[Rfam]
RNA sequence: CCCUCUUACAGAGGCAUGUCUUUGGUUCCCUGUCUUUGGACACAUAAGAAUUGAAGGCAAAGAAAUGUGGAUUUUGGAGAAAUCUGGGGCCAGCUUGAUCCCUGUAGGCUCAAGAGAAACUAUACUACAUAG
Dot-bracket structure: .(((.(..........(((((..((...)).......)))))..........).)))...........(.(..(.................((((((.......))))))...........)).).......

This 132-nucleotide RNA sequence from Castor canadensis belongs to the Rfam family "Small nucleolar RNA SNORA38".
The organism belongs to Castor, within Eukaryota.
It is annotated as an H/ACA-box small nucleolar RNA.
A search with the family's covariance model found it, with a score of 115 bits.